[Rfam]
Rfam assigns this 205-nucleotide RNA sequence from a Rickettsiales bacterium to the family "permuted transfer-messenger RNA". From the family's description: Bacterial tmRNA, also known as 10Sa RNA or SsrA, is named for its dual tRNA and mRNA-like properties. It is annotated as a non-coding RNA gene. Pairs were carried over by alignment from the consensus structure, which is taken from published work.

RNA sequence: GUUGAAGUGAUGAGAUAGAUUUGACGGACCUGGGGGCAGUACCCAGCACCUCCACCAAAACUAGGCUAGGUGGCUUAUGUAAUCCCUUCCGGGGGUGAAUUAGGAUCGACGUAUUUUGAAUGCAUCAUGGAGUUUAUCAGUAAGAUCUCUGUAAAAGGUCAAUUUUAUAAAUGCUAAUAGAAAAGCAUUAGGAUUUGCCGACUUA
Numbered sequence: 001g002u003u004g005a006a007g008u009g010a011u012g013a014g015a016u017a018g019a020u021u022u023g024a025c026g027g028a029c030c031u032g033g034g035g036g037c038a039g040u041a042c043c044c045a046g047c048a049c050c051u052c053c054a055c056c057a058a059a060a061c062u063a064g065g066c067u068a069g070g071u072g073g074c075u076u077a078u079g080u081a082a083u084c085c086c087u088u089c090c091g092g093g094g095g096u097g098a099a100u101u102a103g104g105a106u107c108g109a110c111g112u113a114u115u116u117u118g119a120a121u122g123c124a125u126c127a128u129g130g131a132g133u134u135u136a137u138c139a140g141u142a143a144g145a146u147c148u149c150u151g152u153a154a155a156a157g158g159u160c161a162a163u164u165u166u167a168u169a170a171a172u173g174c175u176a177a178u179a180g181a182a183a184a185g186c187a188u189u190a191g192g193a194u195u196u197g198c199c200g201a202c203u204u205a
Stems, first nucleotide, its partner, number of pairs: 008127004022113001024112003030046005047097007138151003